[Rfam]
The record is a 174-nucleotide RNA from Phocaeicola coprocola, which matches "Group II catalytic intron D1-D4-3" in Rfam. The sequence is in the family's curated seed alignment. The base pairs follow the family's consensus structure.
RNA sequence: UCCUUCGCGAGGAGGAACCUGAAGGAAGCUGGCGGCAAACUCUCGGCUCUACGAACAGAAACUGAUUAUAAGGCUACAUUUGGAGGACAAGUUUGCUAAACAAAAUAAAGUCCUAUAACUAUCCGAAUCCCUAUGUAGUAGAAUCAGAGGGUAUAUGAGAUGAAAGCGUACGUU
Numbered sequence: 001u002c003c004u005u006c007g008c009g010a011g012g013a014g015g016a017a018c019c020u021g022a023a024g025g026a027a028g029c030u031g032g033c034g035g036c037a038a039a040c041u042c043u044c045g046g047c048u049c050u051a052c053g054a055a056c057a058g059a060a061a062c063u064g065a066u067u068a069u070a071a072g073g074c075u076a077c078a079u080u081u082g083g084a085g086g087a088c089a090a091g092u093u094u095g096c097u098a099a100a101c102a103a104a105a106u107a108a109a110g111u112c113c114u115a116u117a118a119c120u121a122u123c124c125g126a127a128u129c130c131c132u133a134u135g136u137a138g139u140a141g142a143a144u145c146a147g148a149g150g151g152u153a154u155a156u157g158a159g160a161u162g163a164a165a166g167c168g169u170a171c172g173u174u
Base pairs, nucleotide, nucleotide: 001016002015003014004013005012006011028174030172031171035167036166041160042159043158044157045156046152047151048150049149050148062147063146064145065144066143067142073139074138075137077135079133082130083129084128085113086112087111088110091106093105094104